Small nucleolar RNA snoR74: a 135-nucleotide sequence from Hibiscus syriacus. The match comes from Rfam's covariance-model search (61 bits). The family's RNA type in Rfam is H/ACA-box small nucleolar RNA. Its family is annotated with RNA processing and nucleolus in the Gene Ontology.
RNA sequence: UCAAAAGAAUAGUCUUGUUACCCUUUCGAAUGAGACUCUUGAACUUUAGGGAAAUUACCUGCAUCAUUAUUAGGUGAACCUUUGGACUCUCUUGAUAAAUGAAUGGCUGAAAGUUCAAUAAAUGAGGCCACAUCU
Numbered sequence: 001u002c003a004a005a006a007g008a009a010u011a012g013u014c015u016u017g018u019u020a021c022c023c024u025u026u027c028g029a030a031u032g033a034g035a036c037u038c039u040u041g042a043a044c045u046u047u048a049g050g051g052a053a054a055u056u057a058c059c060u061g062c063a064u065c066a067u068u069a070u071u072a073g074g075u076g077a078a079c080c081u082u083u084g085g086a087c088u089c090u091c092u093u094g095a096u097a098a099a100u101g102a103a104u105g106g107c108u109g110a111a112a113g114u115u116c117a118a119u120a121a122a123u124g125a126g127g128c129c130a131c132a133u134c135u
Stems, first nucleotide, its partner, number of pairs: 005046003011037002014034004062127001064125005075117005081111005